[Rfam]
RNA: RT-14 RNA
RNA sequence: CUCUAAUAUUUUUUCUAGAUUAUAUAUUCUAAGGAAUAUAUACAAUGAGAUAUUAGAUAUUAAAGAGAUUUGUUCCUUCCUAAUUAAGGUAAAAAAGAAUCAAUAUAAUUUGUAUUAGUAAAAUUAAGUGAAUAUAUGAAUUAUAU
Numbered sequence: 001c002u003c004u005a006a007u008a009u010u011u012u013u014u015c016u017a018g019a020u021u022a023u024a025u026a027u028u029c030u031a032a033g034g035a036a037u038a039u040a041u042a043c044a045a046u047g048a049g050a051u052a053u054u055a056g057a058u059a060u061u062a063a064a065g066a067g068a069u070u071u072g073u074u075c076c077u078u079c080c081u082a083a084u085u086a087a088g089g090u091a092a093a094a095a096a097g098a099a100u101c102a103a104u105a106u107a108a109u110u111u112g113u114a115u116u117a118g119u120a121a122a123a124u125u126a127a128g129u130g131a132a133u134a135u136a137u138g139a140a141u142u143a144u145a146u
Base pairs, nucleotide, nucleotide: 003056004055005054006053007052008051009050014048015047021042022041023040024039025038026037027036028035029034079089080088081087103146104145105144106143107142108141109140110139111138112137113136114135115134122129